[Rfam]
RNA sequence: AGGUAGAUGCACCCUGGUUUUCCCUCGCCGCGCUUAAAAAGAGCGGUGGGGGUCUUUUUU
Numbered sequence: 001a002g003g004u005a006g007a008u009g010c011a012c013c014c015u016g017g018u019u020u021u022c023c024c025u026c027g028c029c030g031c032g033c034u035u036a037a038a039a040a041g042a043g044c045g046g047u048g049g050g051g052g053u054c055u056u057u058u059u060u
Base pairs, nucleotide, nucleotide: 002013003012004011022052023051024050025049026048027047028046029045030044031043

Description: A member of the RNA family "Nitrogen stress-induced RNA 1" from Allocoleopsis franciscana, 60 nucleotides long. The source organism's lineage runs through Bacteria, Bacillati, Cyanophyceae, Allocoleopsis and Allocoleopsis franciscana. Rfam 15.1 lists 962 matches to the family in 163 species. The match comes from Rfam's covariance-model search (42 bits).